[Rfam]
RNA sequence: CGGGAUAACUGGACGAUCGCGCGCCGUGCAUACGGCUCGAGGAACGUCCGGGCUCCAGAGGACAGGGUGGUGGGUAACGCCCACUCGGGGAAACCCGCAGGCUAGUGCCACAGAAAAGAGACCGCUCGCCGCGUGCGGUGAGUCAGGGUGAAACGGUGGUGUAAGAGACCACCAGCGGCCUAGGCGACUGGGUCGGCUCGGUAAACCCCACCCGGAGCAAGGCCAGACAGGCUGUGUAUGAGGCGGUCCGCUCAGCAGCCGGGUAGGCCGCUCGAGCGCACCGGCAACGGUGCGCCUAGAUGGAUGAUCGUCACCUGCCAGUUCGGGUAACCGCGGCAGGCACAGAACCCGGCGUACAGGUUAUCCCGUCCA
Numbered sequence: 001c002g003g004g005a006u007a008a009c010u011g012g013a014c015g016a017u018c019g020c021g022c023g024c025c026g027u028g029c030a031u032a033c034g035g036c037u038c039g040a041g042g043a044a045c046g047u048c049c050g051g052g053c054u055c056c057a058g059a060g061g062a063c064a065g066g067g068u069g070g071u072g073g074g075u076a077a078c079g080c081c082c083a084c085u086c087g088g089g090g091a092a093a094c095c096c097g098c099a100g101g102c103u104a105g106u107g108c109c110a111c112a113g114a115a116a117a118g119a120g121a122c123c124g125c126u127c128g129c130c131g132c133g134u135g136c137g138g139u140g141a142g143u144c145a146g147g148g149u150g151a152a153a154c155g156g157u158g159g160u161g162u163a164a165g166a167g168a169c170c171a172c173c174a175g176c177g178g179c180c181u182a183g184g185c186g187a188c189u190g191g192g193u194c195g196g197c198u199c200g201g202u203a204a205a206c207c208c209c210a211c212c213c214g215g216a217g218c219a220a221g222g223c224c225a226g227a228c229a230g231g232c233u234g235u236g237u238a239u240g241a242g243g244c245g246g247u248c249c250g251c252u253c254a255g256c257a258g259c260c261g262g263g264u265a266g267g268c269c270g271c272u273c274g275a276g277c278g279c280a281c282c283g284g285c286a287a288c289g290g291u292g293c294g295c296c297u298a299g300a301u302g303g304a305u306g307a308u309c310g311u312c313a314c315c316u317g318c319c320a321g322u323u324c325g326g327g328u329a330a331c332c333g334c335g336g337c338a339g340g341c342a343c344a345g346a347a348c349c350c351g352g353c354g355u356a357c358a359g360g361u362u363a364u365c366c367c368g369u370c371c372a
Stems, first nucleotide, its partner, number of pairs: 001368010011357001012312007020039002023036005044355003048352005053217004060249004065213005070084005085099001086097004100208002105206002107202003122147002124143008155173006175197001176195008221269004230260006242252003276295008
Shown here is a 372-nucleotide RNA sequence from Zhihengliuella flava, a member of the family "Bacterial RNase P class A". The source organism's lineage runs through Bacteria, Bacillati, Actinomycetes, Micrococcaceae and Zhihengliuella. Rfam classes the family as a ribozyme. The match comes from Rfam's covariance-model search (300 bits). Ribonuclease P (RNase P) is a ubiquitous endoribonuclease, found in archaea, bacteria and eukarya as well as chloroplasts and mitochondria.